[Rfam]
RNA sequence: UCAAAAAAACAGCCUAAUCUUCAUUAUUUGAAGAACGGAGGAACCAAAUUUUGGGGGUUAACUUACAAUUUUGUAAGAGGGAACCUUUCUCCCUAGCCCGUCAGCUAACUCCGUCGGCUUGGAAGGAGAGAGUUU
Numbered sequence: 001u002c003a004a005a006a007a008a009a010c011a012g013c014c015u016a017a018u019c020u021u022c023a024u025u026a027u028u029u030g031a032a033g034a035a036c037g038g039a040g041g042a043a044c045c046a047a048a049u050u051u052u053g054g055g056g057g058u059u060a061a062c063u064u065a066c067a068a069u070u071u072u073g074u075a076a077g078a079g080g081g082a083a084c085c086u087u088u089c090u091c092c093c094u095a096g097c098c099c100g101u102c103a104g105c106u107a108a109c110u111c112c113g114u115c116g117g118c119u120u121g122g123a124a125g126g127a128g129a130g131a132g133u134u135u
Stems, first nucleotide, its partner, number of pairs: 011119004018034006035114006045054001055099003063076004079093004
RNA: c-di-AMP riboswitch aptamer (ydaO/yuaA leader)
Organism: Seinonella peptonophila